[Rfam]
RNA sequence: UUGUUACGGGGUGAUGGUGUUCCACCUCAACCAACCGCCAGUCCGUUUCAUGGAAUGGCUGAUGACGCCUGACAUAAU
Numbered sequence: 001u002u003g004u005u006a007c008g009g010g011g012u013g014a015u016g017g018u019g020u021u022c023c024a025c026c027u028c029a030a031c032c033a034a035c036c037g038c039c040a041g042u043c044c045g046u047u048u049c050a051u052g053g054a055a056u057g058g059c060u061g062a063u064g065a066c067g068c069c070u071g072a073c074a075u076a077a078u
Base pairs, nucleotide, nucleotide: 010026011025012024013023016069017068018067019066020065021064037059038058039057040056
RNA: Fluoride riboswitch aptamer (crcB RNA motif)
Organism: Tatumella ptyseos